[Rfam]
RNA sequence: UUACUACCAAACCCUAUCUCCACCCCCACGUGGUGAUCGCUGGGAGUUUUUUCUCCACGAAAAACAGCAGAUGGGGAAGG
Numbered sequence: 001u002u003a004c005u006a007c008c009a010a011a012c013c014c015u016a017u018c019u020c021c022a023c024c025c026c027c028a029c030g031u032g033g034u035g036a037u038c039g040c041u042g043g044g045a046g047u048u049u050u051u052u053c054u055c056c057a058c059g060a061a062a063a064a065c066a067g068c069a070g071a072u073g074g075g076g077a078a079g080g
Stems, first nucleotide, its partner, number of pairs: 013080003017076004022034003048064006
drz-agam-1 ribozyme: an 80-nucleotide RNA sequence from Hermetia illucens. The source organism's lineage runs through Eukaryota, Insecta, Neoptera, Panorpida and Hermetia. The literature on the family includes a 2009 paper in Science by Webb et al., "Widespread occurrence of self-cleaving ribozymes". Gene Ontology term of the family: catalytic activity.